[Rfam]
RNA sequence: ACACUGGAAGGGCUCCGAGCCUGCCAACCCUAACGCUACGGCUAUGGGGGCUGGCCGUCGGCGGUGAUACCGCCCGACCGGGGUCGCGCGUGGAAACGGUGCGGCCUCCCCUGCUCAGACUAGCUGAGCUUUGGAAAGGGGUUUAUGGUUCGACUAA
Numbered sequence: 001a002c003a004c005u006g007g008a009a010g011g012g013c014u015c016c017g018a019g020c021c022u023g024c025c026a027a028c029c030c031u032a033a034c035g036c037u038a039c040g041g042c043u044a045u046g047g048g049g050g051c052u053g054g055c056c057g058u059c060g061g062c063g064g065u066g067a068u069a070c071c072g073c074c075c076g077a078c079c080g081g082g083g084u085c086g087c088g089c090g091u092g093g094a095a096a097c098g099g100u101g102c103g104g105c106c107u108c109c110c111c112u113g114c115u116c117a118g119a120c121u122a123g124c125u126g127a128g129c130u131u132u133g134g135a136a137a138g139g140g141g142u143u144u145a146u147g148g149u150u151c152g153a154c155u156a157a
Stems, first nucleotide, its partner, number of pairs: 011143006019055003023051003028048003035042002057078005081107009091098002108134002
A member of the RNA family "Molybdenum/Tungsten riboswitch aptamer (Moco RNA motif)" from Truepera sp., 157 nucleotides long. NCBI's taxonomy places the organism under Bacteria, Thermotogati, Deinococcota, Deinococci, Truepera.